[Rfam]
RNA sequence: GUGGCUCAUUCACCUUCUUAUGUCAGCCCCUUCGGGACGUGCUACAUAAACUUCGAAUGACGCACAACAAGGUGCCUGCCGUCCAGCAACUGAUAAUAGCUCUGCUUUAUCAAUCAUCGGGCGAAACGUUGAGUUAGGCACCGCCUUAUUCCAGAACAAAGCCGGGCUUAUGCCCGGCUUUGUUCUU
Numbered sequence: 001g002u003g004g005c006u007c008a009u010u011c012a013c014c015u016u017c018u019u020a021u022g023u024c025a026g027c028c029c030c031u032u033c034g035g036g037a038c039g040u041g042c043u044a045c046a047u048a049a050a051c052u053u054c055g056a057a058u059g060a061c062g063c064a065c066a067a068c069a070a071g072g073u074g075c076c077u078g079c080c081g082u083c084c085a086g087c088a089a090c091u092g093a094u095a096a097u098a099g100c101u102c103u104g105c106u107u108u109a110u111c112a113a114u115c116a117u118c119g120g121g122c123g124a125a126a127c128g129u130u131g132a133g134u135u136a137g138g139c140a141c142c143g144c145c146u147u148a149u150u151c152c153a154g155a156a157c158a159a160a161g162c163c164g165g166g167c168u169u170a171u172g173c174c175c176g177g178c179u180u181u182g183u184u185c186u187u
Stems, first nucleotide, its partner, number of pairs: 004063002006060004014055001016048001019044001024041001071142007081122004092111004157182011
Dot-bracket structure: ...((((((....(.(..(....(................)..)...)......).)))).)).......(((((((...((((.......((((............)))).......)))).............)))))))..............(((((((((((....))))))))))).....
RNA: GlmZ RNA activator of glmS mRNA